[Rfam]
RNA sequence: GUACGCAAUAAUGCGUCUUAUGCAGCAACCACUGCGUAGCGGCUAGAACCCGCAUUGGGCUUCUAUUAAGGAGAAAUCAAAUG
Numbered sequence: 001g002u003a004c005g006c007a008a009u010a011a012u013g014c015g016u017c018u019u020a021u022g023c024a025g026c027a028a029c030c031a032c033u034g035c036g037u038a039g040c041g042g043c044u045a046g047a048a049c050c051c052g053c054a055u056u057g058g059g060c061u062u063c064u065a066u067u068a069a070g071g072a073g074a075a076a077u078c079a080a081a082u083g
Stems, first nucleotide, its partner, number of pairs: 001018001003016004019038007039053004